[Rfam]
Shown here is a 263-nucleotide RNA sequence from Eleutherodactylus coqui, a member of the family "RNase MRP". Rfam classes the family as a ribozyme.

RNA sequence: AGGCAUUCUGAAGACCUGCCGUCUAGGCAACGCACUGAGGACAGCCGUUCCUCGCACAGCCUAGGGGAAAGUCCCCGGAUCCGGCACAGCAAGUGUCGUGUGCUCGUUGAGCGCGCUACAAUCCUGCCCGUCCAUCUGCCUACCGCGGAGAAGCUCCUAGAGCCGAGCGGCUUGAGGGGGGCGGGACCUCAGUCAUAGUCAUAGUAACGCAGGUAGCGAGGCGGUGACCACGUGAACACAACGGGGCUCAUUCUCAGAAUGCU
Numbered sequence: 001a002g003g004c005a006u007u008c009u010g011a012a013g014a015c016c017u018g019c020c021g022u023c024u025a026g027g028c029a030a031c032g033c034a035c036u037g038a039g040g041a042c043a044g045c046c047g048u049u050c051c052u053c054g055c056a057c058a059g060c061c062u063a064g065g066g067g068a069a070a071g072u073c074c075c076c077g078g079a080u081c082c083g084g085c086a087c088a089g090c091a092a093g094u095g096u097c098g099u100g101u102g103c104u105c106g107u108u109g110a111g112c113g114c115g116c117u118a119c120a121a122u123c124c125u126g127c128c129c130g131u132c133c134a135u136c137u138g139c140c141u142a143c144c145g146c147g148g149a150g151a152a153g154c155u156c157c158u159a160g161a162g163c164c165g166a167g168c169g170g171c172u173u174g175a176g177g178g179g180g181g182c183g184g185g186a187c188c189u190c191a192g193u194c195a196u197a198g199u200c201a202u203a204g205u206a207a208c209g210c211a212g213g214u215a216g217c218g219a220g221g222c223g224g225u226g227a228c229c230a231c232g233u234g235a236a237c238a239c240a241a242c243g244g245g246g247c248u249c250a251u252u253c254u255c256a257g258a259a260u261g262c263u
Base pairs, nucleotide, nucleotide: 002263003262004261005260006259007258008257009256010255011254014214015213016212017211018210019209022065023064024063025062026061027060028059037053038052039051040050041049070248071247073246074245075244076243086096087095088094098116099115100114101113102112103111119185125181127179128178129177143170144169145168146167153163154162155161156160216233217232218231220229221228